[Rfam]
The family of this 115-nucleotide RNA from Gemmobacter aquaticus is "Glycine riboswitch aptamer".

RNA sequence: CUGUCAGGAUCGGGAGAAUCCGGCGGGGGCACCCAGUCUAUCGGGCGCUUCGGAGCCGGUGCCGAAGGAGCAACCGCCCCGGUAAACUCUCAGGCGCAAGAACCGUUCUGACGCA
Numbered sequence: 001c002u003g004u005c006a007g008g009a010u011c012g013g014g015a016g017a018a019u020c021c022g023g024c025g026g027g028g029g030c031a032c033c034c035a036g037u038c039u040a041u042c043g044g045g046c047g048c049u050u051c052g053g054a055g056c057c058g059g060u061g062c063c064g065a066a067g068g069a070g071c072a073a074c075c076g077c078c079c080c081g082g083u084a085a086a087c088u089c090u091c092a093g094g095c096g097c098a099a100g101a102a103c104c105g106u107u108c109u110g111a112c113g114c115a
Base pairs, nucleotide, nucleotide: 007109008108009107011105012104013103020059021058022057023056061095062094063093064091065090068089069088070087074082075081
Rfam describes the family as follows. This family represents the bacterial glycine riboswitch. The base pairs follow the family's consensus structure.